[Rfam]
RNA: Rhizobiales sRNA Atu_C8
Organism: Tianweitania sediminis
RNA sequence: GACCAAGACAACCAUUAUUGUAGUAGGAUGGCGCGUGGGCAAGGCGGUGUAACCGCCGGGCGAAAGCACCCCAUGCGCAAGACACAGGCUCCCUCGGGGGCCUUUUUUAUUGCCUCGAA
Numbered sequence: 001g002a003c004c005a006a007g008a009c010a011a012c013c014a015u016u017a018u019u020g021u022a023g024u025a026g027g028a029u030g031g032c033g034c035g036u037g038g039g040c041a042a043g044g045c046g047g048u049g050u051a052a053c054c055g056c057c058g059g060g061c062g063a064a065a066g067c068a069c070c071c072c073a074u075g076c077g078c079a080a081g082a083c084a085c086a087g088g089c090u091c092c093c094u095c096g097g098g099g100g101c102c103u104u105u106u107u108u109a110u111u112g113c114c115u116c117g118a119a
Stems, first nucleotide, its partner, number of pairs: 009023001026115002029112001031078009043057005060067002084104001086103007